[Rfam]
RNA sequence: AAAAAAAUGUGGAUCAGAAGGAGUAUAAAGAAUUUCGCCAUCAGCGAGCUGAUACAGAGUGGAAGGUCAGCGGUAAGAAAUCUUUAGAAGCGCAUCUGGGAGUGUCCCUUUGAAAACAGUAGAAGGGGUCGUCUGUCUUACGUUACAAGGCUAAAGAUCUUUUGUGGGAUACAGAAGAUGAAACAGAGUGGUACCGCGAUACGUCGCCUCUAAU
Numbered sequence: 001a002a003a004a005a006a007a008u009g010u011g012g013a014u015c016a017g018a019a020g021g022a023g024u025a026u027a028a029a030g031a032a033u034u035u036c037g038c039c040a041u042c043a044g045c046g047a048g049c050u051g052a053u054a055c056a057g058a059g060u061g062g063a064a065g066g067u068c069a070g071c072g073g074u075a076a077g078a079a080a081u082c083u084u085u086a087g088a089a090g091c092g093c094a095u096c097u098g099g100g101a102g103u104g105u106c107c108c109u110u111u112g113a114a115a116a117c118a119g120u121a122g123a124a125g126g127g128g129u130c131g132u133c134u135g136u137c138u139u140a141c142g143u144u145a146c147a148a149g150g151c152u153a154a155a156g157a158u159c160u161u162u163u164g165u166g167g168g169a170u171a172c173a174g175a176a177g178a179u180g181a182a183a184c185a186g187a188g189u190g191g192u193a194c195c196g197c198g199a200u201a202c203g204u205c206g207c208c209u210c211u212a213a214u
Base pairs, nucleotide, nucleotide: 007103008102015098016097017096018095026086027085028084029083030082031081037074038073039072048071049070050069051068052067053066105128106127107126108125109124110123111122130142131141132140159177160176161175162174163173164172165171185211186210187209188208196207197206198205199204
Record summary
T-box leader: a 214-nucleotide RNA sequence from Hoskinsella hominis. On this family, see Grundy et al., J Bacteriol 1994: "Interaction between the acceptor end of tRNA and the T box stimulates antitermination in the Bacillus subtilis tyrS gene: a new role for the discriminator base". The base pairs follow the family's consensus structure, which is taken from published work. The match comes from Rfam's covariance-model search (112 bits). Taxonomically the source falls in Hoskinsella (Bacteria, Bacillati, Erysipelotrichia, Erysipelotrichaceae). Uncharged tRNA acts as the effector for transcription antitermination of genes in the T-box leader family. By type it is a cis-regulatory leader.